[Rfam]
About this RNA: The family of this 404-nucleotide part of an RNA from Oreochromis niloticus is "Eukaryotic large subunit ribosomal RNA". It scores 2912 bits against the family's covariance model. The organism belongs to Oreochromis, within Eukaryota.
RNA sequence: GAUGUGUUGUUGCAAUAGUAAUCCUGCUCAGUACGAGAGGAACCGCAGGUUCAGACAUUUGGUGUAUGUGCUUGGCUGAGGAGCCAAUGGUGCGAAGCUACCAUCUGCGGGAUUAUGACUGAACGCCUCUAAGUCAGAAUCCUGCCUAGACGCAGUGAUACCGUAGCGCUGUGGAUCUUCGGUUGGUCUCGGAUAGCCGGCCCGCCGGUGAAGGAGAGCCAUUCGUGACUGGGCUGGGGACGGCCCGACGACGGUCGCCCCUCUCCAAUCGCGCACUCAUGUUUGUGGAGAACCUGGUGCUAAAUAACUUGUAAACGACCUGAUUCUGGGUCAGGGUCUUGUGCGUAGCAGAGCAGCUAAUCGCUGCGAUCUAUUGAAAGUCAGCCCUCGAUCCAAGCUUUUGU
Numbered sequence: 001g002a003u004g005u006g007u008u009g010u011u012g013c014a015a016u017a018g019u020a021a022u023c024c025u026g027c028u029c030a031g032u033a034c035g036a037g038a039g040g041a042a043c044c045g046c047a048g049g050u051u052c053a054g055a056c057a058u059u060u061g062g063u064g065u066a067u068g069u070g071c072u073u074g075g076c077u078g079a080g081g082a083g084c085c086a087a088u089g090g091u092g093c094g095a096a097g098c099u100a101c102c103a104u105c106u107g108c109g110g111g112a113u114u115a116u117g118a119c120u121g122a123a124c125g126c127c128u129c130u131a132a133g134u135c136a137g138a139a140u141c142c143u144g145c146c147u148a149g150a151c152g153c154a155g156u157g158a159u160a161c162c163g164u165a166g167c168g169c170u171g172u173g174g175a176u177c178u179u180c181g182g183u184u185g186g187u188c189u190c191g192g193a194u195a196g197c198c199g200g201c202c203c204g205c206c207g208g209u210g211a212a213g214g215a216g217a218g219c220c221a222u223u224c225g226u227g228a229c230u231g232g233g234c235u236g237g238g239g240a241c242g243g244c245c246c247g248a249c250g251a252c253g254g255u256c257g258c259c260c261c262u263c264u265c266c267a268a269u270c271g272c273g274c275a276c277u278c279a280u281g282u283u284u285g286u287g288g289a290g291a292a293c294c295u296g297g298u299g300c301u302a303a304a305u306a307a308c309u310u311g312u313a314a315a316c317g318a319c320c321u322g323a324u325u326c327u328g329g330g331u332c333a334g335g336g337u338c339u340u341g342u343g344c345g346u347a348g349c350a351g352a353g354c355a356g357c358u359a360a361u362c363g364c365u366g367c368g369a370u371c372u373a374u375u376g377a378a379a380g381u382c383a384g385c386c387c388u389c390g391a392u393c394c395a396a397g398c399u400u401u402u403g404u
Stems, first nucleotide, its partner, number of pairs: 006159008016148003021051001023049005052107004060100003067094005072087006109143003116136005168298004173293001302402003308322001311319001328394005334387003338380002345374004350370001353367005